[Rfam]
RNA sequence: CUUCUGCUAUGAUGACCUUUGAAUAAAAUUCACAUGUCAGACUUCAGAGAUUCUUAAGAAUCAAUGAGAAUAAACAUUCAUUAUUCUGAGCAGAUU
Numbered sequence: 001c002u003u004c005u006g007c008u009a010u011g012a013u014g015a016c017c018u019u020u021g022a023a024u025a026a027a028a029u030u031c032a033c034a035u036g037u038c039a040g041a042c043u044u045c046a047g048a049g050a051u052u053c054u055u056a057a058g059a060a061u062c063a064a065u066g067a068g069a070a071u072a073a074a075c076a077u078u079c080a081u082u083a084u085u086c087u088g089a090g091c092a093g094a095u096u
Base pairs, nucleotide, nucleotide: 003094004093005092006091007090049062050061051060052059
Dot-bracket structure: ..(((((.........................................((((......))))...........................)))))..